Shown here is a 64-nucleotide RNA sequence from Comamonas testosteroni, a member of the family "Betaproteobacteria toxic small RNA".
For this family Rfam cites "Identification of small RNAs abundant in Burkholderia cenocepacia biofilms reveal putative regulators with a potential role in carbon and iron metabolism" (Sass et al., Sci Rep, 2017).
From the family's description: Overexpression in amino aid rich medium attenuates growth, suggesting role in repressing amino acid intake and metabolism.

RNA sequence: UGUCUCCUCCACCUCCUCUAAUGGUGGAUUCAGCCCCUAGCUCCUGAGCUAGGGGCUUUUUUUC
Numbered sequence: 001u002g003u004c005u006c007c008u009c010c011a012c013c014u015c016c017u018c019u020a021a022u023g024g025u026g027g028a029u030u031c032a033g034c035c036c037c038u039a040g041c042u043c044c045u046g047a048g049c050u051a052g053g054g055g056c057u058u059u060u061u062u063u064c
Stems, first nucleotide, its partner, number of pairs: 008028006032057008